[Rfam]
RNA: NiCo (Nickel/Cobalt) riboswitch aptamer
RNA sequence: ACAGUACAAACUGAGCAGGCGAUGAACCUUUAGGUCAUGGGGCCGGGCCGCUUUUGUGGCAGCAGAUUGCAAUUUCAGCACAUCUGUGGGACAGUU
Numbered sequence: 001a002c003a004g005u006a007c008a009a010a011c012u013g014a015g016c017a018g019g020c021g022a023u024g025a026a027c028c029u030u031u032a033g034g035u036c037a038u039g040g041g042g043c044c045g046g047g048c049c050g051c052u053u054u055u056g057u058g059g060c061a062g063c064a065g066a067u068u069g070c071a072a073u074u075u076c077a078g079c080a081c082a083u084c085u086g087u088g089g090g091a092c093a094g095u096u
Stems, first nucleotide, its partner, number of pairs: 010095004016090001018044003022038004027033001047060005062087006
Dot-bracket structure: .........((((..(.(((.((((.(.....).))))...)))..(((((....))))).((((((..............))))))..).)))).